This 388-nucleotide RNA sequence belongs to the Rfam family "Vertebrate telomerase RNA". The family has 37 seed sequences and 523 matches in Rfam 15.1. Rfam's curators write: Telomerase is a ribonucleoprotein reverse transcriptase that synthesises telomeric DNA. Telomerase RNAs differ greatly in sequence and structure between vertebrates, ciliates and yeasts, but they share a 5' pseudoknot structure close to the template sequence. Vertebrate telomerase RNAs have a 3' H/ACA snoRNA-like domain. It is annotated as a non-coding RNA gene. For this family Rfam cites "Analysis of the structure of human telomerase RNA in vivo" (Antal et al., Nucleic Acids Res, 2002).
[Rfam]
RNA sequence: GUCUAACCCUAUUGUUAUAGCUGUGGGUUCUGUUCUUUUGUUCUCCGCCCGCUGUUUUUCUCGCUGACUUUCAGCGGGCCUGGAAAGUUCAGACCUGCAGCGGGUCACCGCGCAUUCUGGAACCUCAAAAAAUGUCAGCGUAGGAGCUCUGGUGCCAGAGCUCCGCGGCGCUGGGCCGCCCAGCCCGGUACCCGCCUGGAGGCCGCGGACGGCCUGGGGUCUUAGAACUCCGCUGCCGCCGUGAAGAGCUAGUCUCUGUUAGCUACGGGGCACCGGGCGCUGGGGUCAGGCCGGGAGAGCGCCGCAAGGACAGUAACGGAACUGGUCCCUGAGUUCGGUGGCUUUCCUGAGAUGUGGGAAGUGCACCUGGAACUCAGUUCCUACAACC
Numbered sequence: 001g002u003c004u005a006a007c008c009c010u011a012u013u014g015u016u017a018u019a020g021c022u023g024u025g026g027g028u029u030c031u032g033u034u035c036u037u038u039u040g041u042u043c044u045c046c047g048c049c050c051g052c053u054g055u056u057u058u059u060c061u062c063g064c065u066g067a068c069u070u071u072c073a074g075c076g077g078g079c080c081u082g083g084a085a086a087g088u089u090c091a092g093a094c095c096u097g098c099a100g101c102g103g104g105u106c107a108c109c110g111c112g113c114a115u116u117c118u119g120g121a122a123c124c125u126c127a128a129a130a131a132a133u134g135u136c137a138g139c140g141u142a143g144g145a146g147c148u149c150u151g152g153u154g155c156c157a158g159a160g161c162u163c164c165g166c167g168g169c170g171c172u173g174g175g176c177c178g179c180c181c182a183g184c185c186c187g188g189u190a191c192c193c194g195c196c197u198g199g200a201g202g203c204c205g206c207g208g209a210c211g212g213c214c215u216g217g218g219g220u221c222u223u224a225g226a227a228c229u230c231c232g233c234u235g236c237c238g239c240c241g242u243g244a245a246g247a248g249c250u251a252g253u254c255u256c257u258g259u260u261a262g263c264u265a266c267g268g269g270g271c272a273c274c275g276g277g278c279g280c281u282g283g284g285g286u287c288a289g290g291c292c293g294g295g296a297g298a299g300c301g302c303c304g305c306a307a308g309g310a311c312a313g314u315a316a317c318g319g320a321a322c323u324g325g326u327c328c329c330u331g332a333g334u335u336c337g338g339u340g341g342c343u344u345u346c347c348u349g350a351g352a353u354g355u356g357g358g359a360a361g362u363g364c365a366c367c368u369g370g371a372a373c374u375c376a377g378u379u380c381c382u383a384c385a386a387c388c
Base pairs, nucleotide, nucleotide: 035087036086037085038084047079048078049077050076051075052074053073054072063139064138065137066136067135068134069132070131071130162308165305166304167303168302174292175291176290177289178286179285180284181283183278184277185276186275187274188273189272191269192268193267194266204243205242206241207240208239210238211237212236213235216231217230218229245257246256247255248254319380320379321378322377323376324374325373326372328370329369338366339365340364341362344359345358346357347356